The record is a 137-nucleotide RNA sequence from Smithornis capensis, which matches "Small nucleolar RNA SNORA64/SNORA10 family" in Rfam. A search with the family's covariance model found it, with a score of 35 bits. The family has 9 seed sequences and 703 matches in Rfam 15.1. Rfam's curators write: This family belongs to the H/ACA class of small nucleolar RNAs (snoRNAs) which act as guides in the the modification of uridines to pseudouridines. This family includes the human snoRNAs U64 and ACA10 and mouse MBI-29. The family is grouped with related families in Rfam's "SNORA64 clan". Its family is annotated with RNA processing and nucleolus in the Gene Ontology.
RNA sequence: AAUCUCCCAAUCUGCGCGAUUGCACUUGUGCACUGUAGUGUAAUUGUCGUAAAUGGAGAGAGAGAGAAACCUGAGUUCUGUGUGUUCAUCAGGGAGACCCAGCCAUGGUCUCCCUGGCCUUGCAAAAUCCUACAUCU
Numbered sequence: 001a002a003u004c005u006c007c008c009a010a011u012c013u014g015c016g017c018g019a020u021u022g023c024a025c026u027u028g029u030g031c032a033c034u035g036u037a038g039u040g041u042a043a044u045u046g047u048c049g050u051a052a053a054u055g056g057a058g059a060g061a062g063a064g065a066g067a068a069a070c071c072u073g074a075g076u077u078c079u080g081u082g083u084g085u086u087c088a089u090c091a092g093g094g095a096g097a098c099c100c101a102g103c104c105a106u107g108g109u110c111u112c113c114c115u116g117g118c119c120u121u122g123c124a125a126a127a128u129c130c131u132a133c134a135u136c137u
Stems, first nucleotide, its partner, number of pairs: 003067004008062001011059003018045008076127002079124002082121001084119001091115003095111005